[Rfam]
Shown here is a 104-nucleotide RNA from Trichloromonas acetexigens, a member of the family "TPP riboswitch aptamer (THI element)". Pairs were carried over by alignment from the consensus structure, which is taken from published work. Gene Ontology term of the family: thiamine pyrophosphate binding. The match comes from Rfam's covariance-model search (76 bits).
RNA sequence: AAAUACCGCUAGGGGAGUUUUAUACUGAGAGUUUCGCCCCCGCGAAACGACCCUUGGAACCUGAUCCGGGUGAUGCCGGCGUAGGGAAGCGGCGACCAGAACCG
Dot-bracket structure: .....(((((((((..((.....))......(((((......)))))...)))).....((((..((((......))))..))))..)))))............
Numbered sequence: 001a002a003a004u005a006c007c008g009c010u011a012g013g014g015g016a017g018u019u020u021u022a023u024a025c026u027g028a029g030a031g032u033u034u035c036g037c038c039c040c041c042g043c044g045a046a047a048c049g050a051c052c053c054u055u056g057g058a059a060c061c062u063g064a065u066c067c068g069g070g071u072g073a074u075g076c077c078g079g080c081g082u083a084g085g086g087a088a089g090c091g092g093c094g095a096c097c098a099g100a101a102c103c104g
Stems, first nucleotide, its partner, number of pairs: 006092005011054004017025002032047005060085004066079004